[Rfam]
RNA: mir-160 microRNA precursor family
RNA sequence: UUAUGCCUGGCUCCCUGUAUGCCGCAAGCAGACGACAAUCUGCCGGAGAUUGGCCGUUGCUGGUGGCGUACGAGGAGCCAAGCAUAC
Numbered sequence: 001u002u003a004u005g006c007c008u009g010g011c012u013c014c015c016u017g018u019a020u021g022c023c024g025c026a027a028g029c030a031g032a033c034g035a036c037a038a039u040c041u042g043c044c045g046g047a048g049a050u051u052g053g054c055c056g057u058u059g060c061u062g063g064u065g066g067c068g069u070a071c072g073a074g075g076a077g078c079c080a081a082g083c084a085u086a087c
Base pairs, nucleotide, nucleotide: 002086003085004084005083006082008080009079010078011077012076013075014074016072017071018070019069020068021067022066023065024064027061028060029059